[Rfam]
Annotation:
Histidine operon leader: a 137-nucleotide sequence from Thalassotalea piscium. It scores 49 bits against the family's covariance model. Rfam links the family to the GO term histidine biosynthetic process. The family's RNA type in Rfam is cis-regulatory leader. At least 6 amino acid operons are known to be regulated by attenuation. In each a leader sequence of 150-200 bp is found upstream of the first gene in the operon. This leader sequence can assume two different secondary structures known as the terminator and the anti-terminator structure. In each case the leader also codes for very short peptide sequence that is rich in the end product amino acid of the operon.
RNA sequence: UCAUCAUCACCAUCACACGGAUUAGCCACUCAGGUAUAUUCGCUGAAGGGCUAUGGACCUUUCAGCGGCACUAGAAUUAAAGUAUAUCAGUUUUCUAAACCCCCGAAAGAGUCCCACUCUUUCGGGGGUUUUCGCAU
Numbered sequence: 001u002c003a004u005c006a007u008c009a010c011c012a013u014c015a016c017a018c019g020g021a022u023u024a025g026c027c028a029c030u031c032a033g034g035u036a037u038a039u040u041c042g043c044u045g046a047a048g049g050g051c052u053a054u055g056g057a058c059c060u061u062u063c064a065g066c067g068g069c070a071c072u073a074g075a076a077u078u079a080a081a082g083u084a085u086a087u088c089a090g091u092u093u094u095c096u097a098a099a100c101c102c103c104c105g106a107a108a109g110a111g112u113c114c115c116a117c118u119c120u121u122u123c124g125g126g127g128g129u130u131u132u133c134g135c136a137u
Base pairs, nucleotide, nucleotide: 008042012035013034014033020031021030043065044064045063046062047061048060049059050058094134097131098130099129100128101127102126103125104124105123106122107121108120109119110118111117